[Rfam]
RNA: ilvB-OMG RNA
RNA sequence: GUCACGCGAACGGCAACGGCUAUUGGUGGGUACCCUCACCCUCUGGCCUACCUCCACAACGGGAUAGUUGUGCGGGCUGUUUGCGGGUUCCGUAAUGUGCGCUGUGCGCACCUCGGGCUCGACACUGCGCUACCUCGCAGGACGACCGAAACACGGCUUUCGUGAUCGGCGUUCGGAUACGGUAGUCCGGAGCGAUCCGGCCAGUG
Numbered sequence: 001g002u003c004a005c006g007c008g009a010a011c012g013g014c015a016a017c018g019g020c021u022a023u024u025g026g027u028g029g030g031u032a033c034c035c036u037c038a039c040c041c042u043c044u045g046g047c048c049u050a051c052c053u054c055c056a057c058a059a060c061g062g063g064a065u066a067g068u069u070g071u072g073c074g075g076g077c078u079g080u081u082u083g084c085g086g087g088u089u090c091c092g093u094a095a096u097g098u099g100c101g102c103u104g105u106g107c108g109c110a111c112c113u114c115g116g117g118c119u120c121g122a123c124a125c126u127g128c129g130c131u132a133c134c135u136c137g138c139a140g141g142a143c144g145a146c147c148g149a150a151a152c153a154c155g156g157c158u159u160u161c162g163u164g165a166u167c168g169g170c171g172u173u174c175g176g177a178u179a180c181g182g183u184a185g186u187c188c189g190g191a192g193c194g195a196u197c198c199g200g201c202c203a204g205u206g
Base pairs, nucleotide, nucleotide: 018048019047020046021045022044025040026039027038028037029036030035051076052075053074055072056071057070058069059068060067085120086119087118088117090116091115092114096110097109098108099107100106138176140174141173142172143171147168148167149166152164153163154162155161187200188199189198190197191196